[Rfam]
RNA sequence: AAACUCGUGAGGGAAUGUCUGAAGGAAGCCUAAUCCAAAAUCGUGUGGCGAUGAAAAAGAACCUAAUAUGAGGUGUGACGUAAGUGAGACGAGUGGGCACGUAACUGCGAAGUCUUCCAUCUGCGAUUGGCUUACGUUUUAUAAAUUAGGCGUACAUGCGAGGAAAGUUAAUUGUC
Numbered sequence: 001a002a003a004c005u006c007g008u009g010a011g012g013g014a015a016u017g018u019c020u021g022a023a024g025g026a027a028g029c030c031u032a033a034u035c036c037a038a039a040a041u042c043g044u045g046u047g048g049c050g051a052u053g054a055a056a057a058a059g060a061a062c063c064u065a066a067u068a069u070g071a072g073g074u075g076u077g078a079c080g081u082a083a084g085u086g087a088g089a090c091g092a093g094u095g096g097g098c099a100c101g102u103a104a105c106u107g108c109g110a111a112g113u114c115u116u117c118c119a120u121c122u123g124c125g126a127u128u129g130g131c132u133u134a135c136g137u138u139u140u141a142u143a144a145a146u147u148a149g150g151c152g153u154a155c156a157u158g159c160g161a162g163g164a165a166a167g168u169u170a171a172u173u174g175u176c
Stems, first nucleotide, its partner, number of pairs: 001016001004013003028176001030174001032172001036167001041161005048153003062150006073142003077138007087115004093108004